[Rfam]
Rfam assigns this 74-nucleotide RNA from Notechis scutatus to the family "Small nucleolar RNA SNORD99". Its Rfam clan is "SNORD58 clan".
RNA sequence: CCUUGUCUGUGAUGAAACAUUUUUCUAAUGGUGACAGCUGGAUGAAUCCUGCGGAUAUGGGGCUGAGAUGAGGC
Numbered sequence: 001c002c003u004u005g006u007c008u009g010u011g012a013u014g015a016a017a018c019a020u021u022u023u024u025c026u027a028a029u030g031g032u033g034a035c036a037g038c039u040g041g042a043u044g045a046a047u048c049c050u051g052c053g054g055a056u057a058u059g060g061g062g063c064u065g066a067g068a069u070g071a072g073g074c
Base pairs, nucleotide, nucleotide: 001073002072003071004070005069
Gene Ontology terms of the family: RNA processing and nucleolus.